[Rfam]
Shown here is a 72-nucleotide sequence from Oscillatoriales cyanobacterium USR001, a member of the family "tRNA". Its family is annotated with triplet codon-amino acid adaptor activity in the Gene Ontology. By type it is a transfer RNA.
RNA sequence: GCAGGUGUGAUGUAACUGGCAACAUGAGGCUUUCGUAAAGCUUUCAUGCGAGUUCAAAUCUCGCCGCUUGCU
Numbered sequence: 001g002c003a004g005g006u007g008u009g010a011u012g013u014a015a016c017u018g019g020c021a022a023c024a025u026g027a028g029g030c031u032u033u034c035g036u037a038a039a040g041c042u043u044u045c046a047u048g049c050g051a052g053u054u055c056a057a058a059u060c061u062c063g064c065c066g067c068u069u070g071c072u
Base pairs, nucleotide, nucleotide: 001071002070003069004068005067006066007065010025011024012023013022027043028042029041030040031039048064049063050062051061052060